RNA sequence: CGGUUGUUAGUAAUUAUCGCUAAAGCGUUAGUUGCUAAGUAAUUGUACUUCAAAGCGCAGGAGUUCGCCGUGCCCACACCGAACAUCUGCGCUAUUCG
Numbered sequence: 001c002g003g004u005u006g007u008u009a010g011u012a013a014u015u016a017u018c019g020c021u022a023a024a025g026c027g028u029u030a031g032u033u034g035c036u037a038a039g040u041a042a043u044u045g046u047a048c049u050u051c052a053a054a055g056c057g058c059a060g061g062a063g064u065u066c067g068c069c070g071u072g073c074c075c076a077c078a079c080c081g082a083a084c085a086u087c088u089g090c091g092c093u094a095u096u097c098g
Stems, first nucleotide, its partner, number of pairs: 002044006008037009018027002054093008063084005070079003
Dot-bracket structure: .(((((((((((((((.((......)).))))))))).)))))).........((((((((.(((((..(((....)))))))).)))))))).....
The record is a 98-nucleotide RNA sequence from Ligilactobacillus equi, which matches "23S methyl RNA motif" in Rfam. It scores 51 bits against the family's covariance model.